[Rfam]
The record is a 104-nucleotide RNA from Clostridium paraputrificum, which matches "Purine riboswitch aptamer" in Rfam. The match comes from Rfam's covariance-model search (76 bits).
RNA sequence: AUUUAAAAUAAAUUGUUCACUUAUAUAAAUCCUACAAUAUGGGUUGGAUGUUUCUACCGAGUUACCGUAAAUUACUCUGGGCUAUAAGUGUCUGCUAAGUAUAU
Numbered sequence: 001a002u003u004u005a006a007a008a009u010a011a012a013u014u015g016u017u018c019a020c021u022u023a024u025a026u027a028a029a030u031c032c033u034a035c036a037a038u039a040u041g042g043g044u045u046g047g048a049u050g051u052u053u054c055u056a057c058c059g060a061g062u063u064a065c066c067g068u069a070a071a072u073u074a075c076u077c078u079g080g081g082c083u084a085u086a087a088g089u090g091u092c093u094g095c096u097a098a099g100u101a102u103a104u
Stems, first nucleotide, its partner, number of pairs: 018090008029049004034044002058080001059077004064072001

Its family is annotated with purine nucleobase biosynthetic process in the Gene Ontology.